[Rfam]
RNA: mir-1175 microRNA precursor family
Organism: Dreissena polymorpha
RNA sequence: UCAUGUAGUGGAGAGAGUUUUAUCUCAUCAUCUGUGCUGUACAAGGGUGAGAUUCAACUCCUCCAACUGCACACA
Numbered sequence: 001u002c003a004u005g006u007a008g009u010g011g012a013g014a015g016a017g018u019u020u021u022a023u024c025u026c027a028u029c030a031u032c033u034g035u036g037c038u039g040u041a042c043a044a045g046g047g048u049g050a051g052a053u054u055c056a057a058c059u060c061c062u063c064c065a066a067c068u069g070c071a072c073a074c075a
Base pairs, nucleotide, nucleotide: 006069007068008067009065010064011063012062013061015060016059023051025050026049027048028047029046